[Rfam]
RNA sequence: UUGACAGCUAUGAUGAGGAAUAGUAAUUUGUGCGCCCAGCGCAGAGAGUUGGCAUUUUGGUGAAAGUCAACCUGGGGAAGCAAGUGAACUCGCCUCAUCGCCCCAAAGGGGAACCCCAGUACUCUUUGGCGUUUGGUCCUCGUUAACGGAUUCUGAGUGAGUGUUUGCGAUAAGCAGACAUUAAUUAGGGUGGUACCGCGGGAAUUGUUAACUAACCUCUCGUCCCUAGC
Numbered sequence: 001u002u003g004a005c006a007g008c009u010a011u012g013a014u015g016a017g018g019a020a021u022a023g024u025a026a027u028u029u030g031u032g033c034g035c036c037c038a039g040c041g042c043a044g045a046g047a048g049u050u051g052g053c054a055u056u057u058u059g060g061u062g063a064a065a066g067u068c069a070a071c072c073u074g075g076g077g078a079a080g081c082a083a084g085u086g087a088a089c090u091c092g093c094c095u096c097a098u099c100g101c102c103c104c105a106a107a108g109g110g111g112a113a114c115c116c117c118a119g120u121a122c123u124c125u126u127u128g129g130c131g132u133u134u135g136g137u138c139c140u141c142g143u144u145a146a147c148g149g150a151u152u153c154u155g156a157g158u159g160a161g162u163g164u165u166u167g168c169g170a171u172a173a174g175c176a177g178a179c180a181u182u183a184a185u186u187a188g189g190g191u192g193g194u195a196c197c198g199c200g201g202g203a204a205u206u207g208u209u210a211a212c213u214a215a216c217c218u219c220u221c222g223u224c225c226c227u228a229g230c
Stems, first nucleotide, its partner, number of pairs: 007101002015096004026085006037074003048071006104128007130142002160182009187227004198223005